Rfam assigns this 45-nucleotide sequence from Dermabacter hominis to the family "L31-Actinobacteria ribosomal protein leader". Rfam classes the family as a cis-regulatory leader. The organism belongs to Dermabacter hominis, within Bacteria. Rfam's curators put it in the seed alignment. The base pairs follow the family's consensus structure, which is taken from published work.
RNA sequence: ACGGUUCUGGUUCACGGCCCGCACCGCGGCGCCGACCCAGCGGCC
Number, nucleotide and partner (000 for none) at each position: 001a000002c000003g045004g044005u043006u000007c040008u039009g038010g037011u000012u000013c000014a000015c034016g033017g032018c031019c029020c028021g027022c026023a000024c000025c000026g022027c021028g020029g019030c000031g018032c017033c016034g015035a000036c000037c010038c009039a008040g007041c000042g000043g005044c004045c003